[Rfam]
RNA sequence: GGGAGUAGGAGGGUCGCUGACAGUGCCAGACACUGAGGAAAGUCCCCUCUCCAAGAUGCAAGCGGUCCGGUGCAAGCCGGAGGUCCGGGAGGGUCGGCUCUGCAAUAGAAACGUCCCGCGCCAGGCGCACGAUGAUCCCGAAAGGGUGAGGUUUCCUGACCGCGGCUGGAACGAGCAACCCCGCUGGAGCAAGUCCAAGCAGGCCCAUAGUGCAUCGACAGGGCCGGGUAGGAUGCAUAGUUGAAUGCGACCAGCUGAAAGGUGAACAGAAAGGGGCUUACUCCCUACACCC
Numbered sequence: 001g002g003g004a005g006u007a008g009g010a011g012g013g014u015c016g017c018u019g020a021c022a023g024u025g026c027c028a029g030a031c032a033c034u035g036a037g038g039a040a041a042g043u044c045c046c047c048u049c050u051c052c053a054a055g056a057u058g059c060a061a062g063c064g065g066u067c068c069g070g071u072g073c074a075a076g077c078c079g080g081a082g083g084u085c086c087g088g089g090a091g092g093g094u095c096g097g098c099u100c101u102g103c104a105a106u107a108g109a110a111a112c113g114u115c116c117c118g119c120g121c122c123a124g125g126c127g128c129a130c131g132a133u134g135a136u137c138c139c140g141a142a143a144g145g146g147u148g149a150g151g152u153u154u155c156c157u158g159a160c161c162g163c164g165g166c167u168g169g170a171a172c173g174a175g176c177a178a179c180c181c182c183g184c185u186g187g188a189g190c191a192a193g194u195c196c197a198a199g200c201a202g203g204c205c206c207a208u209a210g211u212g213c214a215u216c217g218a219c220a221g222g223g224c225c226g227g228g229u230a231g232g233a234u235g236c237a238u239a240g241u242u243g244a245a246u247g248c249g250a251c252c253a254g255c256u257g258a259a260a261g262g263u264g265a266a267c268a269g270a271a272a273g274g275g276g277c278u279u280a281c282u283c284c285c286u287a288c289a290c291c292c
Stems, first nucleotide, its partner, number of pairs: 001292003005288005010282002012252006021035005040279003044276005049189004055219001057217002061185005066081005082095005096180002101177003116165003120160001122158004137146002193234004202225005